Rfam assigns this 145-nucleotide RNA from Heliornis fulica to the family "Small nucleolar RNA SNORA12".
A reference for the family is Gu et al. (2005), "A novel experimental approach for systematic identification of box H/ACA snoRNAs from eukaryotes", Nucleic Acids Res.
NCBI's taxonomy places the organism under Eukaryota, Opisthokonta, Teleostomi, Sauria, Heliornis.
Rfam links the family to the GO terms RNA processing and nucleolus.
U108 belongs to the H/ACA family of snoRNAs. The sequence is predicted to guide the pseudouridylation of the U372 residue in the 28S rRNA subunit. However it has not been reported as a pseudouridylation site.
RNA sequence: UGUCGUGGUAGUUUCUGUACUCGGCGGGUCUGAAGCUGUAUCAGAGCAGCCUUAAACCACCACAGAGAUCAGUAAGGAGAAAGCUGCGCUGAGAGCUUUUCCCAGGCGUUUAGUUCUCAGCUUGGCUUAUUCAGCUCCUACAGAA
Numbered sequence: 001u002g003u004c005g006u007g008g009u010a011g012u013u014u015c016u017g018u019a020c021u022c023g024g025c026g027g028g029u030c031u032g033a034a035g036c037u038g039u040a041u042c043a044g045a046g047c048a049g050c051c052u053u054a055a056a057c058c059a060c061c062a063c064a065g066a067g068a069u070c071a072g073u074a075a076g077g078a079g080a081a082a083g084c085u086g087c088g089c090u091g092a093g094a095g096c097u098u099u100u101c102c103c104a105g106g107c108g109u110u111u112a113g114u115u116c117u118c119a120g121c122u123u124g125g126c127u128u129a130u131u132c133a134g135c136u137c138c139u140a141c142a143g144a145a
Stems, first nucleotide, its partner, number of pairs: 005063005011057001023051003027047001029045004076138004104128004